[Rfam]
Potassium channel RNA editing signal: a 114-nucleotide RNA from Channa argus. The organism belongs to Channa, within Eukaryota. On this family, see Bhalla et al., Nat Struct Mol Biol 2004: "Control of human potassium channel inactivation by editing of a small mRNA hairpin".

RNA sequence: CUCGGCUAUGGAGACAUGUACCCACAGACGUGGUUGGGCAUGAUGGUGGGUGCACUGUGUGCAUUGGCUGGGGUGCUGACUAUUGCCAUGCCAGUCCCCGUCAUUGUCAAUAAU
Numbered sequence: 001c002u003c004g005g006c007u008a009u010g011g012a013g014a015c016a017u018g019u020a021c022c023c024a025c026a027g028a029c030g031u032g033g034u035u036g037g038g039c040a041u042g043a044u045g046g047u048g049g050g051u052g053c054a055c056u057g058u059g060u061g062c063a064u065u066g067g068c069u070g071g072g073g074u075g076c077u078g079a080c081u082a083u084u085g086c087c088a089u090g091c092c093a094g095u096c097c098c099c100g101u102c103a104u105u106g107u108c109a110a111u112a113a114u
Stems, first nucleotide, its partner, number of pairs: 002113001004111001008107004013102003018097001020095002037077004050062002
Dot-bracket structure: .(.(...((((.(((..(.((...............((((.........((.........))...........))))................)).)..))).))))...).).